[Rfam]
RNA sequence: GGAAUAUAAGAACCCGUCUCUUAAUUUUUAACUAAAAAGGCUAAGAACCGGUUCUUAAAUCUUUUAUUUAAGAGCCGGUUCUUAGCUUUUUUUUAGUUAAAAGUUAAGAGACGGGUUAUUAUAUUAU
Numbered sequence: 001g002g003a004a005u006a007u008a009a010g011a012a013c014c015c016g017u018c019u020c021u022u023a024a025u026u027u028u029u030a031a032c033u034a035a036a037a038a039g040g041c042u043a044a045g046a047a048c049c050g051g052u053u054c055u056u057a058a059a060u061c062u063u064u065u066a067u068u069u070a071a072g073a074g075c076c077g078g079u080u081c082u083u084a085g086c087u088u089u090u091u092u093u094u095a096g097u098u099a100a101a102a103g104u105u106a107a108g109a110g111a112c113g114g115g116u117u118a119u120u121a122u123a124u125u126a127u
Base pairs, nucleotide, nucleotide: 001127003125004124005123006122007121008120009119011117012116013115014114015113016112017111018110019109020108021107022106023105024104025103026102027101028100029099030098031097032096033095034094035093036092037091038090039089041085042084043083044082045081046080047079
This 127-nucleotide RNA from Brassica oleracea belongs to the Rfam family "MIR9563 microRNA precursor family".
Its family is annotated with miRNA-mediated post-transcriptional gene silencing and RISC complex in the Gene Ontology.
Pairs were carried over by alignment from the consensus structure, which was predicted with RNAalifold.
Taxonomically the source falls in Brassica oleracea (Eukaryota, eudicotyledons, Gunneridae, rosids).